Rfam assigns this 573-nucleotide sequence from Lachnospiraceae bacterium KHCPX20 to the family "ROOL RNA". The family's RNA type in Rfam is small RNA.
RNA sequence: UUAUUUAAUUGAGCUUAGUAUGAACUCAGUGAAGAAGGAAUAAUCACCCUGCUGAGAAUACAUGGACAUCGCUUUUUGAUUUCUCGGAUAUCGAGGAAAAGAAAAGUUCGAAUGCCUGCGAAGGCGGUUAGAAUACCGAGUAAAACUCUAAAGAUAAGUGUAUGUACCAUAAAAGUUAGCGAGAUAAAGGCUCAUUUCUUACGGCUGCGAAAAUAGACGCUCCAGUGGAGAAUAACGAUGAUGCCUUAUGUGUGGAAAGCAUAAGGAGUUAAGUAAUCGAAUUCCAAUUAAGCAGUUUCCCGAGGACUCGAAGAAAUUUGAGUUGUCACGUAAGUUGGUGGAACAAGUAGGUCAAGGGAAUCAAUUAAAGAUAAUAAUUAUAACAGAUAUUAAUUCUUACAAGUGAAUGAUGGCUGAAAGUUAAAGGUAAUCAAUCCUUUACGCACAUUGGUCAAUGACAGGGCUAAUAGUUUAUGAUCGACGGAUUAUAAAUUCACAUUAGUCUUGGCGUUUGCUGAAUAUAUCGGUUAACUUUUAUGGCAAGGCGAAGGUCUCUUGCUAUGCUCAAUUAAA
Numbered sequence: 001u002u003a004u005u006u007a008a009u010u011g012a013g014c015u016u017a018g019u020a021u022g023a024a025c026u027c028a029g030u031g032a033a034g035a036a037g038g039a040a041u042a043a044u045c046a047c048c049c050u051g052c053u054g055a056g057a058a059u060a061c062a063u064g065g066a067c068a069u070c071g072c073u074u075u076u077u078g079a080u081u082u083c084u085c086g087g088a089u090a091u092c093g094a095g096g097a098a099a100a101g102a103a104a105a106g107u108u109c110g111a112a113u114g115c116c117u118g119c120g121a122a123g124g125c126g127g128u129u130a131g132a133a134u135a136c137c138g139a140g141u142a143a144a145a146c147u148c149u150a151a152a153g154a155u156a157a158g159u160g161u162a163u164g165u166a167c168c169a170u171a172a173a174a175g176u177u178a179g180c181g182a183g184a185u186a187a188a189g190g191c192u193c194a195u196u197u198c199u200u201a202c203g204g205c206u207g208c209g210a211a212a213a214u215a216g217a218c219g220c221u222c223c224a225g226u227g228g229a230g231a232a233u234a235a236c237g238a239u240g241a242u243g244c245c246u247u248a249u250g251u252g253u254g255g256a257a258a259g260c261a262u263a264a265g266g267a268g269u270u271a272a273g274u275a276a277u278c279g280a281a282u283u284c285c286a287a288u289u290a291a292g293c294a295g296u297u298u299c300c301c302g303a304g305g306a307c308u309c310g311a312a313g314a315a316a317u318u319u320g321a322g323u324u325g326u327c328a329c330g331u332a333a334g335u336u337g338g339u340g341g342a343a344c345a346a347g348u349a350g351g352u353c354a355a356g357g358g359a360a361u362c363a364a365u366u367a368a369a370g371a372u373a374a375u376a377a378u379u380a381u382a383a384c385a386g387a388u389a390u391u392a393a394u395u396c397u398u399a400c401a402a403g404u405g406a407a408u409g410a411u412g413g414c415u416g417a418a419a420g421u422u423a424a425a426g427g428u429a430a431u432c433a434a435u436c437c438u439u440u441a442c443g444c445a446c447a448u449u450g451g452u453c454a455a456u457g458a459c460a461g462g463g464c465u466a467a468u469a470g471u472u473u474a475u476g477a478u479c480g481a482c483g484g485a486u487u488a489u490a491a492a493u494u495c496a497c498a499u500u501a502g503u504c505u506u507g508g509c510g511u512u513u514g515c516u517g518a519a520u521a522u523a524u525c526g527g528u529u530a531a532c533u534u535u536u537a538u539g540g541c542a543a544g545g546c547g548a549a550g551g552u553c554u555c556u557u558g559c560u561a562u563g564c565u566c567a568a569u570u571a572a573a
Base pairs, nucleotide, nucleotide: 007570008569009568010567011566012565013564014563016561017560018559019558020557022555025056026055027054028053029052036050037049038048058163059162060161061160062159063158072106073105074104075103076102077101080098081097082096083095084094085093086092107133108132109131110129111128113126114125115124116123117122138148139147140146141145171535172534173533176530189522190516193340194339195338196337198334199333200332201331202330203329204296205295206294207293208292220230221229222228223227236279237278238277239276244266245265246264247263248262249261250260253286254285255284256283297360298359299358300357301356307322308321309320310319311318344420350415351414352413353412354411403497404496405495424440425439426438427437442510443509444508451459452458461506462505463504465502467500469499470494472491473490474489476487477486478485479484543554544553545552546551
A search with the family's covariance model found it, with a score of 262 bits. Rfam describes the family as follows. Firmicutes, Fusobacteria (1 example), Tenericutes (1 example).